[Rfam]
Nucleotides: 077
Stems, first nucleotide, its partner, number of pairs: 012066002015063007024054001026052006
Number, partner (000 for none) and nucleotide at each position: 001000c002000u003000c004000u005000c006000u007000g008000u009000u010000g011000u012066c013065c014000u015063c016062a017061u018060u019059g020058u021057a022000c023000a024054u025000g026052c027051u028050g029049u030048g031047u032000g033000u034000a035000u036000u037000u038000g039000u040000g041000u042000c043000g044000c045000u046000u047031a048030c049029a050028c051027a052026g053000c054024g055000c056000g057021u058020g059019c060018a061017a062016u063015g064000u065013g066012g067000a068000c069000a070000u071000c072000g073000u074000g075000g076000a077000g
mir-460 microRNA precursor family: a 77-nucleotide RNA sequence from Struthio camelus. The match comes from Rfam's covariance-model search (74 bits). Gene Ontology terms of the family: RISC complex and miRNA-mediated post-transcriptional gene silencing.